This 231-nucleotide RNA sequence from Thioploca ingrica belongs to the Rfam family "HNH endonuclease-associated RNA and ORF (HEARO) RNA". For this family Rfam cites "Exceptional structured noncoding RNAs revealed by bacterial metagenome analysis" (Weinberg et al., Nature, 2009). The base pairs follow the family's consensus structure, which is taken from published work. The family has 139 seed sequences and 952 matches in Rfam 15.1. NCBI's taxonomy places the organism under Bacteria, Pseudomonadati, Pseudomonadota, Thiotrichaceae, Thioploca.
RNA sequence: GUCAACUACCCCGCCCUAAAGGACGGAGCUUGUAAAAGCAAGGUUGACCAAACUCAGUGCCGCUAUGGGCACUACGCUGAUAAGAGGUCGUUAAGACUUACCGUAGAAUGCUUCCUGAGUCCUACGCUCUAACCGGUCAGAAUCACGCUGGGGAAAGGUAAAGCCUCGAAGGUUCUGAUCGUCAUGGAUCACUGUGAGAGCCGCUUAUCAGCCUUGUCGAAGGGAGAUAGC
Numbered sequence: 001g002u003c004a005a006c007u008a009c010c011c012c013g014c015c016c017u018a019a020a021g022g023a024c025g026g027a028g029c030u031u032g033u034a035a036a037a038g039c040a041a042g043g044u045u046g047a048c049c050a051a052a053c054u055c056a057g058u059g060c061c062g063c064u065a066u067g068g069g070c071a072c073u074a075c076g077c078u079g080a081u082a083a084g085a086g087g088u089c090g091u092u093a094a095g096a097c098u099u100a101c102c103g104u105a106g107a108a109u110g111c112u113u114c115c116u117g118a119g120u121c122c123u124a125c126g127c128u129c130u131a132a133c134c135g136g137u138c139a140g141a142a143u144c145a146c147g148c149u150g151g152g153g154a155a156a157g158g159u160a161a162a163g164c165c166u167c168g169a170a171g172g173u174u175c176u177g178a179u180c181g182u183c184a185u186g187g188a189u190c191a192c193u194g195u196g197a198g199a200g201c202c203g204c205u206u207a208u209c210a211g212c213c214u215u216g217u218c219g220a221a222g223g224g225a226g227a228u229a230g231c
Base pairs, nucleotide, nucleotide: 001048002047003046004045005044006043007042010028012025013024015022016021029038030037031036052217053216056073057072058071059070060069076212077211078210079209080208081207082206083205084204086202098132099131102126103125104124105123106122108120109119112226113225114224115223116222134181135180136179137178138177139176140175141174142173146172149169151167152166153164